[Rfam]
mir-29 microRNA precursor family: a 70-nucleotide RNA sequence from Eptatretus burgeri. Taxonomically the source falls in Eptatretus (Eukaryota, Chordata, Myxini, Myxinidae). The base pairs follow the family's consensus structure, which was predicted with PFOLD. Its family is annotated with RISC complex and gene silencing by miRNA in the Gene Ontology. A search with the family's covariance model found it, with a score of 59 bits. Rfam describes the family as follows. This family represents the microRNA (miRNA) precursors mir-29.
RNA sequence: CGAGUCUGGUUUCACAUGGUGCCAUAGAUGAAUUCUGGCUGAGUCUAGCACCAUUUGAAAUCAGUGUUCC
Numbered sequence: 001c002g003a004g005u006c007u008g009g010u011u012u013c014a015c016a017u018g019g020u021g022c023c024a025u026a027g028a029u030g031a032a033u034u035c036u037g038g039c040u041g042a043g044u045c046u047a048g049c050a051c052c053a054u055u056u057g058a059a060a061u062c063a064g065u066g067u068u069c070c
Base pairs, nucleotide, nucleotide: 002069003068004067006064007063008062009061010060011059012058013057014056016054017053018052019051020050021049025047026046027045028044